[Rfam]
RNA sequence: UGAGCUAGCCCUUGUGGAAGACUAGUGAUUUUGUUGUUGAGAGUGGAACGACAACAAGUCACAGUCUCCUGCACGGCCCAGCCCA
Numbered sequence: 001u002g003a004g005c006u007a008g009c010c011c012u013u014g015u016g017g018a019a020g021a022c023u024a025g026u027g028a029u030u031u032u033g034u035u036g037u038u039g040a041g042a043g044u045g046g047a048a049c050g051a052c053a054a055c056a057a058g059u060c061a062c063a064g065u066c067u068c069c070u071g072c073a074c075g076g077c078c079c080a081g082c083c084c085a
Stems, first nucleotide, its partner, number of pairs: 002084001004082003008078001010076002013073005019067005025062007033055006
RNA: mir-7 microRNA precursor family
Organism: Eptatretus burgeri